RNA sequence: GGCCGUGCCAGCGGGAGAGUUCGUGCAGGAAACUGCACGGCGCCGAAGGAGCAACCGCCCCGGAAUCUCUCAGGCAAGCGGACCGCGGCACGGCA
Numbered sequence: 001g002g003c004c005g006u007g008c009c010a011g012c013g014g015g016a017g018a019g020u021u022c023g024u025g026c027a028g029g030a031a032a033c034u035g036c037a038c039g040g041c042g043c044c045g046a047a048g049g050a051g052c053a054a055c056c057g058c059c060c061c062g063g064a065a066u067c068u069c070u071c072a073g074g075c076a077a078g079c080g081g082a083c084c085g086c087g088g089c090a091c092g093g094c095a
Base pairs, nucleotide, nucleotide: 006090007089008088009087011086012085013084014083021040022039023038024037025036026035027034042075043074044073045071046070049069050068051067055063056062
Dot-bracket structure: .....((((.((((......(((((((......))))))).(((((..(((...((.....))...))))).))).......)))))))).....